[Rfam]
Nucleotides: 077
Stems, first nucleotide, its partner, number of pairs: 013046002016043002021077001023075002026072002028040003050066002053063003
Number, partner (000 for none) and nucleotide at each position: 001000a002000c003000a004000a005000g006000u007000a008000u009000u010000u011000u012000g013046g014045g015000g016043a017042c018000c019000a020000c021077a022000g023075c024074a025000u026072g027071a028040g029039c030038a031000u032000u033000u034000a035000c036000a037000u038030u039029g040028c041000a042017g043016u044000g045014c046013c047000u048000g049000u050066c051065a052000g053063a054062u055061u056000c057000c058000u059000c060000a061055a062054a063053u064000a065051u066050g067000u068000a069000a070000a071027u072026c073000c074024u075023g076000a077021u
Mammalian CPEB3 ribozyme: a 77-nucleotide RNA sequence from Alligator mississippiensis. The family's consensus secondary structure is taken from published work. The match comes from Rfam's covariance-model search (42 bits).